[Rfam]
RNA sequence: AUGCCCAGUGAUUAUGAAAAGACGCGUUAUUCUGAGGAACAAACCCUGCUAUUAGUCUGUCUUCUGCUCUUUGCUCUGUCUACACCUCCUCUCCCUUUCCUGCCCUUCCUCCUCUUUAUUUUUCACUCUAGUAGCAGGUCCACUGACUGCGAUUAUGAGAUAUGAGGGCAU
Numbered sequence: 001a002u003g004c005c006c007a008g009u010g011a012u013u014a015u016g017a018a019a020a021g022a023c024g025c026g027u028u029a030u031u032c033u034g035a036g037g038a039a040c041a042a043a044c045c046c047u048g049c050u051a052u053u054a055g056u057c058u059g060u061c062u063u064c065u066g067c068u069c070u071u072u073g074c075u076c077u078g079u080c081u082a083c084a085c086c087u088c089c090u091c092u093c094c095c096u097u098u099c100c101u102g103c104c105c106u107u108c109c110u111c112c113u114c115u116u117u118a119u120u121u122u123u124c125a126c127u128c129u130a131g132u133a134g135c136a137g138g139u140c141c142a143c144u145g146a147c148u149g150c151g152a153u154u155a156u157g158a159g160a161u162a163u164g165a166g167g168g169c170a171u
Stems, first nucleotide, its partner, number of pairs: 001171006035090004

The record is a 171-nucleotide sequence from Cyprinodon variegatus, which matches "Small nucleolar RNA SNORD97" in Rfam. Rfam links the family to the GO terms nucleolus and RNA processing. The family's consensus secondary structure was predicted with WAR. Lineage of the source: Eukaryota > Chordata > Vertebrata > Teleostomi > Cyprinodon.